[Rfam]
RNA sequence: UACAUCCUGCGAUGUUCGUUUCGGCUUUACGUUGUUUUGAACCAAUGGCUGUUUCUAGGGAGACCAAUAUUGGAACGCGGCUGACAAGCCCUCGAAAAAGGGAUUUCAAAAACGUUUCUGCGGACACCCACCUGCGAGAGCGGGUUCAGAAACAUGUGAGUCGGACGGCAUAGGCGGGUUUUUU
Numbered sequence: 001u002a003c004a005u006c007c008u009g010c011g012a013u014g015u016u017c018g019u020u021u022c023g024g025c026u027u028u029a030c031g032u033u034g035u036u037u038u039g040a041a042c043c044a045a046u047g048g049c050u051g052u053u054u055c056u057a058g059g060g061a062g063a064c065c066a067a068u069a070u071u072g073g074a075a076c077g078c079g080g081c082u083g084a085c086a087a088g089c090c091c092u093c094g095a096a097a098a099a100g101g102g103a104u105u106u107c108a109a110a111a112a113c114g115u116u117u118c119u120g121c122g123g124a125c126a127c128c129c130a131c132c133u134g135c136g137a138g139a140g141c142g143g144g145u146u147c148a149g150a151a152a153c154a155u156g157u158g159a160g161u162c163g164g165a166c167g168g169c170a171u172a173g174g175c176g177g178g179u180u181u182u183u184u
Stems, first nucleotide, its partner, number of pairs: 002182001004180001006178005012171004017167003034153004038148006058129003062125001064123002069119001072118006084106001089102004
RNA: 6S / SsrS RNA
Organism: Paenibacillus catalpae